[Rfam]
RNA sequence: AUCUCUGAUGAUGAUCAGCCUAAAACUUUCGUUCUUCCGAGGUUAAUCUAUGCGGAAAAUUUAUGGAGACCUGAACUGAAGAGAU
Numbered sequence: 001a002u003c004u005c006u007g008a009u010g011a012u013g014a015u016c017a018g019c020c021u022a023a024a025a026c027u028u029u030c031g032u033u034c035u036u037c038c039g040a041g042g043u044u045a046a047u048c049u050a051u052g053c054g055g056a057a058a059a060u061u062u063a064u065g066g067a068g069a070c071c072u073g074a075a076c077u078g079a080a081g082a083g084a085u
Base pairs, nucleotide, nucleotide: 003083004082005081006080

A member of the RNA family "Small nucleolar RNA Z159/U59" from Amborella trichopoda, 85 nucleotides long.
For this family Rfam cites "The high diversity of snoRNAs in plants: identification and comparative study of 120 snoRNA genes from Oryza sativa" (Chen et al., Nucleic Acids Res, 2003).
The source organism's lineage runs through Eukaryota, Embryophyta, Euphyllophyta, Amborellaceae and Amborella.
The match comes from Rfam's covariance-model search (70 bits).
The family's consensus secondary structure was predicted with PFOLD.